A member of the RNA family "Purine riboswitch aptamer" from Paenibacillus ferrarius, 100 nucleotides long. Pairs were carried over by alignment from the consensus structure, which is taken from published work. Gene Ontology term of the family: purine nucleobase biosynthetic process. Lineage of the source: Bacteria > Bacillati > Bacilli > Caryophanales > Paenibacillus. The match comes from Rfam's covariance-model search (67 bits).
RNA sequence: CGAACUGAAUAGGAUCCAUUUCGUAUAACCUUAAUAAUUGGAUUAAGGGUCUCUACUUAGAAACCGUAAAUUUCUAGCUACGAAAAAUGUGCAUACCGGC
Numbered sequence: 001c002g003a004a005c006u007g008a009a010u011a012g013g014a015u016c017c018a019u020u021u022c023g024u025a026u027a028a029c030c031u032u033a034a035u036a037a038u039u040g041g042a043u044u045a046a047g048g049g050u051c052u053c054u055a056c057u058u059a060g061a062a063a064c065c066g067u068a069a070a071u072u073u074c075u076a077g078c079u080a081c082g083a084a085a086a087a088u089g090u091g092c093a094u095a096c097c098g099g100c
Stems, first nucleotide, its partner, number of pairs: 019085007029048007057077007